RNA: Streptomyces RNA 3920
RNA sequence: GAUAGGUCUCUGUCGCUCCUGUGAUUGGACACUGACGCAGAGUCAACUAGCCUUGUUCGAGCGGUUUCCGGUCCAGGGCGCCGCACGCGGCGCUACGCGCGGAGUGUGCGUGGUGCCAUGUGUCACCGGCCUGGGAACCGCGUGCGGAUGGGGGACGGUCCGAGCCAUGAGGGGGGAGGCUCGGACCGUCCUUC
Number, nucleotide and partner (000 for none) at each position: 001g014002a013003u012004a011005g010006g000007u000008c000009u000010c005011u004012g003013u002014c001015g051016c050017u049018c000019c000020u000021g032022u031023g030024a000025u000026u000027g000028g000029a000030c023031a022032c021033u045034g044035a043036c042037g000038c000039a000040g000041a000042g036043u035044c034045a033046a000047c000048u000049a017050g016051c015052c000053u000054u000055g000056u000057u000058c144059g143060a000061g141062c140063g139064g138065u137066u136067u135068c134069c133070g132071g131072u000073c000074c000075a000076g000077g000078g000079c000080g000081c000082c000083g000084c000085a000086c000087g000088c000089g000090g000091c000092g000093c000094u000095a000096c000097g000098c000099g000100c000101g000102g000103a000104g000105u000106g000107u000108g000109c000110g000111u000112g000113g000114u000115g000116c000117c000118a000119u000120g000121u000122g000123u000124c000125a000126c000127c000128g000129g000130c000131c071132u070133g069134g068135g067136a066137a065138c064139c063140g062141c061142g000143u059144g058145c152146g000147g000148a000149u000150g000151g000152g145153g000154g190155a189156c188157g187158g186159u185160c184161c183162g182163a181164g180165c179166c178167a000168u175169g000170a000171g000172g000173g000174g000175g168176g000177a000178g166179g165180c164181u163182c162183g161184g160185a159186c158187c157188g156189u155190c154191c000192u000193u000194c000